[Rfam]
Rfam assigns this 257-nucleotide RNA sequence from Thermolongibacillus altinsuensis to the family "BsrG". The family's RNA type in Rfam is small RNA. On this family, see Saito et al., Gene 2008: "Novel small RNA-encoding genes in the intergenic regions of Bacillus subtilis". The match comes from Rfam's covariance-model search (96 bits). bsrE, bsrG and bsrH pair through intermolecular interactions with antisense sRNAs. They form type I toxin/antitoxin system that includes an mRNA encoding for a short, toxic peptide (bsrE, bsrG and bsrH) and an antitoxin that is comprised of an antisense RNA. bsrG encodes a 39-amino-acid toxin, and the 180 nucleotide antisense sRNA called SR4 acts as the antitoxin (they overlap by 123 nucleotides). SR4 interaction with the 3'UTR of bsrG RNA promotes bsrG degradation and inhibits its translation. BsrG interferes with cell envelope biosynthesis, causes membrane invaginations and delocalisation of the cell wall synthesis and initiates autolysis. bsrE RNA encodes 30 amino-acid toxin peptide. Its antitoxin gene, SR5 overlaps by 112 nucleotides at the 3' end of bsrE. SR5 also overlaps bsrG from nucleotide 163 to 52 (Rfam overlap check). The antitoxin SR5 promotes bsrE degradation but unlike SR4 it does not directly inhibits toxin mRNA translation. The family has 6 seed sequences and 614 matches in Rfam 15.1.

RNA sequence: UGCAAUAGCAGAGGUUCAAGGGAAAAUCAGCUUGCCCCUAUCUCGUUGAAAAGGGGGGUGAGCUUUUGACAGUAUACGAGACGAUUUCGCUAAUGAUUGCAUUUGGGAUGCUUGUUGUAACCAUGCUGUCAUUUGAUAAAAAGAAAAAAUAGACCUCCCUUGAACAGCCGUCAAUUCUUGGAUGAGGUCUAUUUUUCAUGUAAGCUGACUCCUUUGAGCCUGCUAUCGCAUGGGCCGAAAGUGUUGCAGCACUUUCG
Numbered sequence: 001u002g003c004a005a006u007a008g009c010a011g012a013g014g015u016u017c018a019a020g021g022g023a024a025a026a027u028c029a030g031c032u033u034g035c036c037c038c039u040a041u042c043u044c045g046u047u048g049a050a051a052a053g054g055g056g057g058g059u060g061a062g063c064u065u066u067u068g069a070c071a072g073u074a075u076a077c078g079a080g081a082c083g084a085u086u087u088c089g090c091u092a093a094u095g096a097u098u099g100c101a102u103u104u105g106g107g108a109u110g111c112u113u114g115u116u117g118u119a120a121c122c123a124u125g126c127u128g129u130c131a132u133u134u135g136a137u138a139a140a141a142a143g144a145a146a147a148a149a150u151a152g153a154c155c156u157c158c159c160u161u162g163a164a165c166a167g168c169c170g171u172c173a174a175u176u177c178u179u180g181g182a183u184g185a186g187g188u189c190u191a192u193u194u195u196u197c198a199u200g201u202a203a204g205c206u207g208a209c210u211c212c213u214u215u216g217a218g219c220c221u222g223c224u225a226u227c228g229c230a231u232g233g234g235c236c237g238a239a240a241g242u243g244u245u246g247c248a249g250c251a252c253u254u255u256c257g
Stems, first nucleotide, its partner, number of pairs: 001230003005226001007224003011220001013206001015164008031152002036058003041054003068130007082095002105122002174196001209218003236257009